Background: This 71-nucleotide RNA sequence from Rugamonas brunnea belongs to the Rfam family "SAH (S-adenosyl-L-homocysteine) riboswitch aptamer".

RNA sequence: CCUUCCGAGGAGCGUUGCGACGAAUCACCCCGAUUCGCCAGGCUCGGAAUCUGCAACCGCGCUCACGUUAC
Numbered sequence: 001c002c003u004u005c006c007g008a009g010g011a012g013c014g015u016u017g018c019g020a021c022g023a024a025u026c027a028c029c030c031c032g033a034u035u036c037g038c039c040a041g042g043c044u045c046g047g048a049a050u051c052u053g054c055a056a057c058c059g060c061g062c063u064c065a066c067g068u069u070a071c
Stems, first nucleotide, its partner, number of pairs: 003049006021037006